Annotation: c-di-GMP-I riboswitch aptamer: an 85-nucleotide RNA from Coleofasciculus sp. FACHB-SPT36. The base pairs follow the family's consensus structure, which is taken from published work. Taxonomically the source falls in Coleofasciculus (Bacteria, Bacillati, Cyanobacteriota, Coleofasciculaceae).

RNA sequence: CCGCCAACAAGGCAACCGGAUCGAUGAUUAGGUCGCAAAUUCUCAGUUCUAGGCGAUUAAGGUCGUAGGGGCGCUGGUUGCCAUU
Numbered sequence: 001c002c003g004c005c006a007a008c009a010a011g012g013c014a015a016c017c018g019g020a021u022c023g024a025u026g027a028u029u030a031g032g033u034c035g036c037a038a039a040u041u042c043u044c045a046g047u048u049c050u051a052g053g054c055g056a057u058u059a060a061g062g063u064c065g066u067a068g069g070g071g072c073g074c075u076g077g078u079u080g081c082c083a084u085u
Base pairs, nucleotide, nucleotide: 012036013035017031019029020028021027022026039079041077042076045075046074047071048070049069054065055064056063057062
Description:
A search with the family's covariance model found it, with a score of 36 bits.